c-di-GMP-I-GGC riboswitch aptamer: a 77-nucleotide sequence from Methylophaga thalassica. The family's consensus secondary structure is taken from published work. Rfam links the family to the GO term cyclic-di-GMP binding.

RNA sequence: UUAACAAAAGCCAAACUCGUCGUGAGGCGGGGUCGGAAAGCCACAGAUCUUUUUUAAAGAUGGCUGGGUUGCAUUGC
Numbered sequence: 001u002u003a004a005c006a007a008a009a010g011c012c013a014a015a016c017u018c019g020u021c022g023u024g025a026g027g028c029g030g031g032g033u034c035g036g037a038a039a040g041c042c043a044c045a046g047a048u049c050u051u052u053u054u055u056a057a058a059g060a061u062g063g064c065u066g067g068g069u070u071g072c073a074u075u076g077c
Stems, first nucleotide, its partner, number of pairs: 003074001011036002016031006034063001039070004044066003047061003